Nucleotides: 121
Stems, first nucleotide, its partner, number of pairs: 009121003013117017035043002044077003049072001050069005
Number, partner (000 for none) and nucleotide at each position: 001000a002000u003000a004000u005000c006000c007000c008000a009121a010120a011119g012000u013117u014116u015115a016114a017113g018112c019111c020110a021109c022108c023107u024106a025105u026104a027103g028102u029101u030000u031000c032000u033000a034000c035043u036042g037000c038000a039000a040000a041000a042036c043035g044077u045076a046075u047000a048000a049072u050069u051068u052067a053066g054065u055000u056000c057000c058000c059000a060000c061000a062000u063000a064000u065054a066053c067052u068051a069050a070000a071000a072049a073000a074000c075046a076045u077044a078000u079000c080000c081000u082000u083000a084000a085000c086000u087000c088000u089000c090000u091000c092000u093000g094000u095000c096000a097000g098000a099000u100000u101029a102028g103027u104026u105025g106024u107023a108022g109021g110020u111019g112018g113017c114016u115015u116014a117013a118000a119011c120010u121009u
The family of this 121-nucleotide sequence from Listeria monocytogenes is "Listeria snRNA rli51". The literature on the family includes a 2009 paper in Nature by Toledo-Arana et al., "The Listeria transcriptional landscape from saprophytism to virulence". Rfam's curators put it in the seed alignment. Taxonomically the source falls in Listeria (Bacteria, Bacillati, Bacilli, Listeriaceae).